[Rfam]
RNA sequence: GAAUGAAGAAAGCAUUGAACGUGCACAGAAAUUGAUUUGGGUUUCUAGGUCUGCCAUCUCUAAUGCUUUUUGGCGUUGAUUUGGGGACAUGGUUUUGCAGCAAAAUG
Numbered sequence: 001g002a003a004u005g006a007a008g009a010a011a012g013c014a015u016u017g018a019a020c021g022u023g024c025a026c027a028g029a030a031a032u033u034g035a036u037u038u039g040g041g042u043u044u045c046u047a048g049g050u051c052u053g054c055c056a057u058c059u060c061u062a063a064u065g066c067u068u069u070u071u072g073g074c075g076u077u078g079a080u081u082u083g084g085g086g087a088c089a090u091g092g093u094u095u096u097g098c099a100g101c102a103a104a105a106u107g
Base pairs, nucleotide, nucleotide: 012024013023014022015021039090041088042087043086049080050079051078053074054073055072
The family of this 107-nucleotide RNA sequence from Rhododendron williamsianum is "Small nucleolar RNA snoR100". Rfam 15.1 lists 1,851 matches to the family in 220 species. On this family, see Marker et al., Curr Biol 2002: "Experimental RNomics: identification of 140 candidates for small non-messenger RNAs in the plant Arabidopsis thaliana". Gene Ontology terms of the family: RNA processing and nucleolus.